[Rfam]
RNA: Small nucleolar RNA Z43
RNA sequence: GGACAGUGACGAUUGAUAUUAGGUCUCGUUCGUCGUAACAUAGGCUGUAAAAAACCCUAUCUGACGACCAUUCUGUUAUAUCACCACCCAUAUUCUGAGUCC
Numbered sequence: 001g002g003a004c005a006g007u008g009a010c011g012a013u014u015g016a017u018a019u020u021a022g023g024u025c026u027c028g029u030u031c032g033u034c035g036u037a038a039c040a041u042a043g044g045c046u047g048u049a050a051a052a053a054a055c056c057c058u059a060u061c062u063g064a065c066g067a068c069c070a071u072u073c074u075g076u077u078a079u080a081u082c083a084c085c086a087c088c089c090a091u092a093u094u095c096u097g098a099g100u101c102c
Base pairs, nucleotide, nucleotide: 001102002101003100004099042062043061044057
Dot-bracket structure: ((((.....................................(((............)...))....................................))))